[Rfam]
RNA sequence: AUAAUGGUACUUCCGUCCAGUCACAGUCCGAGCGGUACUCAAUCCGUUACAGGCAAUGAGGGCGGAUCUGGCAAACUGUCAGAGGGGUGGAACUCCCGUGG
Dot-bracket structure: ...........(((((((.........................................)))))).((.(((.....))).)).(((.......))))...
pemK RNA: a 101-nucleotide RNA from Clostridiales bacterium CHKCI001. It scores 38 bits against the family's covariance model.